[Rfam]
RNA sequence: CUUUUAAUAAUGUUACUCUUUUUAAAAAGGUCUGAAUAGAUGAACUCUCUAGUGGUUUCAGUGCUUUACUGAAAUAAAUU
Numbered sequence: 001c002u003u004u005u006a007a008u009a010a011u012g013u014u015a016c017u018c019u020u021u022u023u024a025a026a027a028a029g030g031u032c033u034g035a036a037u038a039g040a041u042g043a044a045c046u047c048u049c050u051a052g053u054g055g056u057u058u059c060a061g062u063g064c065u066u067u068a069c070u071g072a073a074a075u076a077a078a079u080u
Stems, first nucleotide, its partner, number of pairs: 003078004008073001

About this RNA: A member of the RNA family "Small nucleolar RNA SNORD72" from Regulus satrapa, 80 nucleotides long. Its family is annotated with RNA processing and nucleolus in the Gene Ontology. The base pairs follow the family's consensus structure. Rfam's curators write: snoRNA HBII-240 belongs to the CD family of snoRNAs. It is the human orthologue of the mouse MBII-240 and is predicted to guide 2'O-ribose methylation of the large 28S rRNA at residue U4590. Rfam 15.1 lists 726 matches to the family in 499 species.